[Rfam]
RNA sequence: CGCAACUUGGGCAGAAGUACUGCUCCAGUUGUCACUGGACCUCCCCAGAGUAAACUGCCUUUUGAUGACCAGGGCGAAUUGAGUGAAAUCGUCAUGGACAGAUACGGGGCAGACAAUU
Numbered sequence: 001c002g003c004a005a006c007u008u009g010g011g012c013a014g015a016a017g018u019a020c021u022g023c024u025c026c027a028g029u030u031g032u033c034a035c036u037g038g039a040c041c042u043c044c045c046c047a048g049a050g051u052a053a054a055c056u057g058c059c060u061u062u063u064g065a066u067g068a069c070c071a072g073g074g075c076g077a078a079u080u081g082a083g084u085g086a087a088a089u090c091g092u093c094a095u096g097g098a099c100a101g102a103u104a105c106g107g108g109g110c111a112g113a114c115a116a117u118u
Base pairs, nucleotide, nucleotide: 002032003031004030005029009025010024011023012022055112056111057110058109059108060107061106069097070096071095074092075091076090077089

The family of this 118-nucleotide sequence is "Small Cajal body specific RNA 8".
Rfam's curators put it in the seed alignment.
scaRNAs are a specific class of small nuclear RNAs which localise to the Cajal bodies and guide the modification of RNA polymerase II transcribed spliceosomal RNAs U1, U2, U4, U5 and U12.
It is annotated as a small Cajal body RNA.
The literature on the family includes a 2001 paper in EMBO J by Huttenhofer et al., "RNomics: an experimental approach that identifies 201 candidates for novel, small, non-messenger RNAs in mouse".
Pairs were carried over by alignment from the consensus structure, which is taken from published work.